Small nucleolar RNA SNORD53/SNORD92: a 77-nucleotide RNA from Steatornis caripensis. The family is grouped with related families in Rfam's "SNORD52 clan". A search with the family's covariance model found it, with a score of 70 bits. Rfam links the family to the GO terms nucleolus and RNA processing.
RNA sequence: UUGCUGUGAUGAUACCCACGUGGUUUCGCUCAGUACUGAUGUGCACUGGGGACAGUUCCUCUUGGCUGUCUGAGCAG
Numbered sequence: 001u002u003g004c005u006g007u008g009a010u011g012a013u014a015c016c017c018a019c020g021u022g023g024u025u026u027c028g029c030u031c032a033g034u035a036c037u038g039a040u041g042u043g044c045a046c047u048g049g050g051g052a053c054a055g056u057u058c059c060u061c062u063u064g065g066c067u068g069u070c071u072g073a074g075c076a077g
Stems, first nucleotide, its partner, number of pairs: 001077004